[Rfam]
The record is a 98-nucleotide sequence from Herbiconiux oxytropis, which matches "Glycine riboswitch aptamer" in Rfam. NCBI's taxonomy places the organism under Bacteria, Bacillati, Actinomycetota, Microbacteriaceae, Herbiconiux. A search with the family's covariance model found it, with a score of 64 bits.
RNA sequence: ACAUCUGCGGCGGGAGAGUCCGGUCGCAGCCAUCGGCCGGCGCCGUAGGAGCAAUCCCUCUCCGGGAAACUCUCAGGCCCCCGCACCGCCGCAGCGAG
Numbered sequence: 001a002c003a004u005c006u007g008c009g010g011c012g013g014g015a016g017a018g019u020c021c022g023g024u025c026g027c028a029g030c031c032a033u034c035g036g037c038c039g040g041c042g043c044c045g046u047a048g049g050a051g052c053a054a055u056c057c058c059u060c061u062c063c064g065g066g067a068a069a070c071u072c073u074c075a076g077g078c079c080c081c082c083g084c085a086c087c088g089c090c091g092c093a094g095c096g097a098g
Stems, first nucleotide, its partner, number of pairs: 006093008020040006042078003045074001049072003055065002